[Rfam]
RNA: pemK RNA
Organism: bacterium C-53
RNA sequence: AUAAUGAUACUUCUGGCGGAAGCCAGUCACAUAGAAAAGAUGAUGGUGCAAGACCAAUGU
Numbered sequence: 001a002u003a004a005u006g007a008u009a010c011u012u013c014u015g016g017c018g019g020a021a022g023c024c025a026g027u028c029a030c031a032u033a034g035a036a037a038a039g040a041u042g043a044u045g046g047u048g049c050a051a052g053a054c055c056a057a058u059g060u
Stems, first nucleotide, its partner, number of pairs: 012057001013026004027043003030039001044056003